Record summary:
The family of this 182-nucleotide sequence from Glycine soja is "mir-172 microRNA precursor family". The match comes from Rfam's covariance-model search (76 bits). mir-172 has been experimentally verified in Arabidopsis thaliana. This family is thought to target mRNAs coding for APETALA2-like transcription factors. The mature sequence is excised from the 3' arm of the hairpin. On this family, see Jones-Rhoades and Bartel, Mol Cell 2004: "Computational Identification of Plant MicroRNAs and Their Targets, Including a Stress-Induced miRNA". Lineage of the source: Eukaryota > Streptophyta > Gunneridae > Fabaceae > Glycine subgen. Soja. The family's consensus secondary structure was predicted with PFOLD. Gene Ontology terms of the family: RISC complex and miRNA-mediated post-transcriptional gene silencing.

RNA sequence: GUAUCUGCAGGUGCAGCGGCAUCAAGAUUCACACUGCCUAAUCAGCUAGGACUUCAUGACUGUACACGCUUAUACAUACAUAUAUAUAUAUACAUGUACGUUGGCUCUUUGUGGACGAGUGUGGAAUGAAUAAAGUUCUAUUUUAGAUGUGGGAAUCUUGAUGAUGCUGCAUCAGCAAAUAC
Number, nucleotide and partner (000 for none) at each position: 001g000002u000003a000004u000005c000006u000007g000008c000009a000010g173011g172012u171013g170014c169015a168016g167017c166018g165019g000020c163021a162022u161023c160024a159025a158026g157027a156028u155029u154030c153031a000032c151033a150034c000035u000036g000037c000038c000039u000040a000041a000042u000043c000044a000045g000046c000047u000048a000049g000050g000051a000052c000053u000054u000055c000056a000057u000058g000059a000060c000061u000062g000063u000064a000065c000066a000067c000068g000069c000070u000071u000072a000073u000074a000075c000076a000077u000078a000079c000080a000081u000082a000083u000084a000085u000086a000087u000088a000089u000090a000091u000092a000093c000094a000095u000096g000097u000098a000099c000100g000101u000102u000103g000104g000105c000106u000107c000108u000109u000110u000111g000112u000113g000114g000115a000116c000117g000118a000119g000120u000121g000122u000123g000124g000125a000126a000127u000128g000129a000130a000131u000132a000133a000134a000135g000136u000137u000138c000139u000140a000141u000142u000143u000144u000145a000146g000147a000148u000149g000150u033151g032152g000153g030154a029155a028156u027157c026158u025159u024160g023161a022162u021163g020164a000165u018166g017167c016168u015169g014170c013171a012172u011173c010174a000175g000176c000177a000178a000179a000180u000181a000182c000